RNA sequence: CCCACAUGAUGAGCUGAUAGACCCAGAGCCUCUGGCACUGCUGACCUUCAUCUAUCACCCGACUCUGAUGGGA
Numbered sequence: 001c002c003c004a005c006a007u008g009a010u011g012a013g014c015u016g017a018u019a020g021a022c023c024c025a026g027a028g029c030c031u032c033u034g035g036c037a038c039u040g041c042u043g044a045c046c047u048u049c050a051u052c053u054a055u056c057a058c059c060c061g062a063c064u065c066u067g068a069u070g071g072g073a
Stems, first nucleotide, its partner, number of pairs: 001072004028036003
RNA: Small nucleolar RNA SNORD83